[Rfam]
RNA: Y RNA
Organism: Saimiri boliviensis
RNA sequence: GGCUGAUCCAAUGGUGGUGGGUUAUCAGAACUUAUUAACAUUAGUGUCACUAAAGUUGGUCUAUGACCCUCCACUGCAAAAUUGGCUGGCUUUUA
Numbered sequence: 001g002g003c004u005g006a007u008c009c010a011a012u013g014g015u016g017g018u019g020g021g022u023u024a025u026c027a028g029a030a031c032u033u034a035u036u037a038a039c040a041u042u043a044g045u046g047u048c049a050c051u052a053a054a055g056u057u058g059g060u061c062u063a064u065g066a067c068c069c070u071c072c073a074c075u076g077c078a079a080a081a082u083u084g085g086c087u088g089g090c091u092u093u094u095a
Stems, first nucleotide, its partner, number of pairs: 001091005007085002010083002015078001016075006034060002037057002